[Rfam]
RNA sequence: GUACCAUGACGAAUACCUUUCAUAUAUGUAUUUUUCUGGCAUCUCUAAUGUUAGGGCUUUUCAGCUCGAUGAAUACAACUUUUGACAAUUAUCUGAUC
Dot-bracket structure: ......................................................((((....))))................................
Source information:
Small nucleolar RNA snR48: a 98-nucleotide RNA sequence from Diutina rugosa. Rfam links the family to the GO terms nucleolus and RNA processing. The family's consensus secondary structure was predicted with ILM. Its Rfam clan is "SNORD60 clan". A search with the family's covariance model found it, with a score of 70 bits.